[Rfam]
RNA sequence: CUUGCUGGCCGAGCAGCCGCGGGGGAGACCGGGGAGAAAACCGGUCCCCUCGAGGAAAGUCCGGACACCGCAGGGCAGGGUGGUCGGGAAACCGACCCGGGGAAACCCGCGGGAAAGUGCCACAGAAACGACACCGCCUAAGCGGCGGGACCGCACGUGAGUCUCGCCGCCGGCAAGGGUGAAAUGGUGCGGUAAGAGCGCACCGGCAGCGUGGUGACACGCUGGCCGGGCAAACCCCACCCGGUGCAAGGCCAAGCAGGGGCGAUGACGCUGCCCGCCGAGCCCCAGGUAGGCCGCAGGGCUCCUCGGAGCCCCGUCCGCGGUGGUCCCCAGGGAUCGGCGCGGGCGAGAUGGAUGGCUGCUCUCGACAGAAUCCGGCUUACAGGCCAGCUACGGGA
Dot-bracket structure: .(.(((((((((((((((.((((((.(.................).))))))....[[[.[[[[[((((...[[[[.((((((((((....)))))(((((....)))).)((...(((((............(((((...((((((((((.........)))))))))).)))..)).......((((((.......)))))).((((((((....))))))).)..)))..)))))))))))))...((((.....(((((......((.]]]]))...))))).....))))......(((.......................................)))..........)))))))..........]]]]]]]].).))))))).).....
RNA: Bacterial RNase P class A